The record is a 359-nucleotide RNA from Alkalisalibacterium limincola, which matches "Bacterial RNase P class A" in Rfam. The family's RNA type in Rfam is ribozyme. Pairs were carried over by alignment from the consensus structure, which is taken from published work.
RNA sequence: GGAGUCGGCCAGGCAAUCGCGUCACCCCUUCGGGGGUGCCGAGGAAAGUCCGGGCUCCACAGGGCAGGGUGCCAGGUAACGCCUGGGCGGCGCGAGCCGACGGAAAGUGCAGCAGAGAACAGACCGCCGAACGGCAUCGCAAGGUGCGCGUGGUAAGGGUGAAACGGUGCGGUAAGAGCGCACCGCCUGCGGGGCCAACGCCGCAGGGCACGGCAAACCCCACCCGGAGCAAGGCCAAAUAGGGGUGCUAUGGUGCGGCCCGCACUGCACCCGGGUAGGCUGCUUGAGGCCUGCAGCAAUGCAGCGUCCAGACGAAUGAUUGCCCACGACAGAACCCGGCUUAUCGGCCGGCUCCGCAC
Numbered sequence: 001g002g003a004g005u006c007g008g009c010c011a012g013g014c015a016a017u018c019g020c021g022u023c024a025c026c027c028c029u030u031c032g033g034g035g036g037u038g039c040c041g042a043g044g045a046a047a048g049u050c051c052g053g054g055c056u057c058c059a060c061a062g063g064g065c066a067g068g069g070u071g072c073c074a075g076g077u078a079a080c081g082c083c084u085g086g087g088c089g090g091c092g093c094g095a096g097c098c099g100a101c102g103g104a105a106a107g108u109g110c111a112g113c114a115g116a117g118a119a120c121a122g123a124c125c126g127c128c129g130a131a132c133g134g135c136a137u138c139g140c141a142a143g144g145u146g147c148g149c150g151u152g153g154u155a156a157g158g159g160u161g162a163a164a165c166g167g168u169g170c171g172g173u174a175a176g177a178g179c180g181c182a183c184c185g186c187c188u189g190c191g192g193g194g195c196c197a198a199c200g201c202c203g204c205a206g207g208g209c210a211c212g213g214c215a216a217a218c219c220c221c222a223c224c225c226g227g228a229g230c231a232a233g234g235c236c237a238a239a240u241a242g243g244g245g246u247g248c249u250a251u252g253g254u255g256c257g258g259c260c261c262g263c264a265c266u267g268c269a270c271c272c273g274g275g276u277a278g279g280c281u282g283c284u285u286g287a288g289g290c291c292u293g294c295a296g297c298a299a300u301g302c303a304g305c306g307u308c309c310a311g312a313c314g315a316a317u318g319a320u321u322g323c324c325c326a327c328g329a330c331a332g333a334a335c336c337c338g339g340c341u342u343a344u345c346g347g348c349c350g351g352c353u354c355c356g357c358a359c
Stems, first nucleotide, its partner, number of pairs: 001355010011344001012324007020041002023038006046342003050339005055229004062261004067225005072086005087101001088099004102220002107218002109214002124158002126154004132148002166184006185209001186207005191201001193199001233281004243272006252266005288307001291304005